[Rfam]
RNA sequence: AAAACAGUGCAAAUUCAAUAUAUUGCAAUCUUCUGGUAGGCCU
Numbered sequence: 001a002a003a004a005c006a007g008u009g010c011a012a013a014u015u016c017a018a019u020a021u022a023u024u025g026c027a028a029u030c031u032u033c034u035g036g037u038a039g040g041c042c043u
Stems, first nucleotide, its partner, number of pairs: 004031001006029001008027005
This 43-nucleotide sequence from Shigella sonnei belongs to the Rfam family "ES036 (CssrF) sRNA". For this family Rfam cites "Differential expression of small RNAs under chemical stress and fed-batch fermentation in E. coli" (Rau et al., BMC Genomics, 2015). By type it is a small RNA. A search with the family's covariance model found it, with a score of 38 bits. NCBI's taxonomy places the organism under Bacteria, Pseudomonadati, Enterobacterales, Enterobacteriaceae, Shigella sonnei. Differentially expressed under several chemical stress conditions.